Shown here is a 72-nucleotide RNA sequence from Keratinibaculum paraultunense, a member of the family "tRNA". By type it is a transfer RNA. The source organism's lineage runs through Bacteria, Bacillati, Bacillota, Tissierellia and Keratinibaculum.

RNA sequence: GGCCCUAUGGUCAAGUGGUUAAGACACCGCCCUUUCACGGCGGUAACCCGGGUUCGAGUCCCGGUAGGGUCA
Numbered sequence: 001g002g003c004c005c006u007a008u009g010g011u012c013a014a015g016u017g018g019u020u021a022a023g024a025c026a027c028c029g030c031c032c033u034u035u036c037a038c039g040g041c042g043g044u045a046a047c048c049c050g051g052g053u054u055c056g057a058g059u060c061c062c063g064g065u066a067g068g069g070u071c072a
Stems, first nucleotide, its partner, number of pairs: 001071007010025003027043005048064005